[Rfam]
A member of the RNA family "Ribosomal protein L20 leader" from Salirhabdus euzebyi, 138 nucleotides long. Rfam's curators write: This family is a putative r-protein leader autoregulatory structure found in B. subtilis and other low-GC Gram-positive bacteria. The base pairs follow the family's consensus structure, which was predicted with CMfinder. Its family is annotated with regulation of gene expression in the Gene Ontology. It scores 82 bits against the family's covariance model. By type it is a cis-regulatory leader.

RNA sequence: UAUGACAAGUAGAAGCACCCGCUUCUCACCUGAUUGACGCAAUAUGCAGUUAACAGGUUCAAUCUAGAUUCUUCAUUUUAAAAAUGAAGAUACAGAUGUGUGUGGGUGCAGUAUGUGUACCGACACUUUUUUUGUGCU
Numbered sequence: 001u002a003u004g005a006c007a008a009g010u011a012g013a014a015g016c017a018c019c020c021g022c023u024u025c026u027c028a029c030c031u032g033a034u035u036g037a038c039g040c041a042a043u044a045u046g047c048a049g050u051u052a053a054c055a056g057g058u059u060c061a062a063u064c065u066a067g068a069u070u071c072u073u074c075a076u077u078u079u080a081a082a083a084a085u086g087a088a089g090a091u092a093c094a095g096a097u098g099u100g101u102g103u104g105g106g107u108g109c110a111g112u113a114u115g116u117g118u119a120c121c122g123a124c125a126c127u128u129u130u131u132u133u134g135u136g137c138u
Stems, first nucleotide, its partner, number of pairs: 011026006028058003036051003039047002101125003105121006